The family of this 155-nucleotide part of an RNA from an uncultured marine eukaryote is "Eukaryotic small subunit ribosomal RNA".
The sequence is in the family's curated seed alignment.
Nucleotides: 155
Stems, first nucleotide, its partner, number of pairs: 001124001003121001006117002009114001011111005017105002021101001023100012037086004044080001048076006056068004126149002129146007
Number, partner (000 for none) and nucleotide at each position: 001124c002000c003121g004000c005000c006117c007116g008000u009114c010000g011111u012110u013109g014108c015107a016000a017105u018104c019000g020000a021101u022000c023100g024099g025098u026097u027096c028095a029094a030093u031092g032091c033090u034089a035000g036000a037086g038085g039084u040083c041000u042000u043000c044080c045000a046000g047000a048076g049075g050074u051073g052072a053071g054000u055000u056068c057067g058066a059065u060000c061000c062000u063000g064000u065059a066058u067057u068056g069000u070000c071053u072052u073051u074050g075049c076048c077000a078000a079000a080044g081000u082000u083040g084039a085038u086037c087000a088000a089034u090033a091032g092031c093030a094029u095028u096027g097026a098025a099024c100023u101021a102000g103000a104018g105017a106000a107015u108014g109013c110012a111011a112000a113000a114009g115000u116007c117006g118000u119000a120000a121003c122000a123000a124001g125000g126149u127148u128000g129146c130145u131144g132143u133142a134141g135140g136000u137000g138000a139000a140135c141134c142133u143132g144131c145130a146129g147000a148127a149126g150000g151000a152000u153000c154000a155000a